[Rfam]
RNA: U4atac minor spliceosomal RNA
RNA sequence: UCCUUCCUUGUCUAGGGGAGCUUAGUGUGCCAAUGAACGUUUAGUGAGGUCACUUUUGCUAACACCCUGUAAAAUUAAACCCGCAUCCUUUUUCUCUAUAAAGGGGAAAUGAGUUGCAAUUUUUGAAACU
Numbered sequence: 001u002c003c004u005u006c007c008u009u010g011u012c013u014a015g016g017g018g019a020g021c022u023u024a025g026u027g028u029g030c031c032a033a034u035g036a037a038c039g040u041u042u043a044g045u046g047a048g049g050u051c052a053c054u055u056u057u058g059c060u061a062a063c064a065c066c067c068u069g070u071a072a073a074a075u076u077a078a079a080c081c082c083g084c085a086u087c088c089u090u091u092u093u094c095u096c097u098a099u100a101a102a103g104g105g106g107a108a109a110u111g112a113g114u115u116g117c118a119a120u121u122u123u124u125g126a127a128a129c130u
Stems, first nucleotide, its partner, number of pairs: 005019005020059002024054004029050003037045002083117003087113001088111001091108006